The family of this 84-nucleotide sequence from Neodiprion lecontei is "mir-2765 microRNA precursor family". The base pairs follow the family's consensus structure, which was predicted with RNAalifold. The family has 6 seed sequences and 109 matches in Rfam 15.1.
Nucleotides: 084
Base pairs, nucleotide, nucleotide: 004081005080006079007078008077010075011074016069017068019066020065021064022063023062029056030055031054032053033052034051035050036049
Number, partner (000 for none) and nucleotide at each position: 001000a002000g003000u004081g005080u006079g007078c008077c009000a010075a011074g012000a013000u014000c015000u016069g017068g018000u019066a020065a021064c022063u023062c024000c025000a026000c027000c028000a029056c030055c031054g032053u033052u034051g035050g036049c037000a038000g039000a040000c041000a042000u043000u044000g045000a046000a047000u048000c049036g050035c051034c052033a053032a054031u055030g056029g057000g058000a059000u060000g061000c062023g063022a064021g065020u066019u067000u068017c069016c070000a071000u072000u073000c074011c075010u076000a077008g078007g079006c080005a081004c082000u083000u084000u